The family of this 130-nucleotide sequence from Eumeta japonica is "U11 spliceosomal RNA". The family is grouped with related families in Rfam's "U1 clan". Lineage of the source: Eukaryota > Mandibulata > Eumetabola > Oiketicinae > Eumeta. It scores 86 bits against the family's covariance model.

[Rfam]
RNA sequence: GAAAAGGGUGUUUGCUGCUUUGAUGGCACGUGUGCUCUCACGGGCGCGCGGGGUAUGGUUAUCAAGACAUACCCAACACAUAAUUUUUUUAUUAAGGAGGCAGUUGGUACCUUUAUGUACUGGCGUCUCC
Numbered sequence: 001g002a003a004a005a006g007g008g009u010g011u012u013u014g015c016u017g018c019u020u021u022g023a024u025g026g027c028a029c030g031u032g033u034g035c036u037c038u039c040a041c042g043g044g045c046g047c048g049c050g051g052g053g054u055a056u057g058g059u060u061a062u063c064a065a066g067a068c069a070u071a072c073c074c075a076a077c078a079c080a081u082a083a084u085u086u087u088u089u090u091a092u093u094a095a096g097g098a099g100g101c102a103g104u105u106g107g108u109a110c111c112u113u114u115a116u117g118u119a120c121u122g123g124c125g126u127c128u129c130c
Stems, first nucleotide, its partner, number of pairs: 008079005013028005029050009051074007098128004103124005111117001